[Rfam]
RNA sequence: GCCGUUGUAGCACAGUGGUAGUGCGUGUGACUUGUACACAGCUGGUACGCUGAUCAAUCAAUCAUGAGGUCCCAGGUUCGAUCCCUGGCAGCGGCA
Numbered sequence: 001g002c003c004g005u006u007g008u009a010g011c012a013c014a015g016u017g018g019u020a021g022u023g024c025g026u027g028u029g030a031c032u033u034g035u036a037c038a039c040a041g042c043u044g045g046u047a048c049g050c051u052g053a054u055c056a057a058u059c060a061a062u063c064a065u066g067a068g069g070u071c072c073c074a075g076g077u078u079c080g081a082u083c084c085c086u087g088g089c090a091g092c093g094g095c096a
Stems, first nucleotide, its partner, number of pairs: 001095007010024004026066005072088005
Background:
Rfam assigns this 96-nucleotide sequence from Scenedesmus sp. NREL 46B-D3 to the family "tRNA". NCBI's taxonomy places the organism under Eukaryota, Chlorophyta, core chlorophytes, Chlorophyceae, Scenedesmus. Transfer RNA (tRNA) molecules are approximately 80 nucleotides in length. It is annotated as a transfer RNA.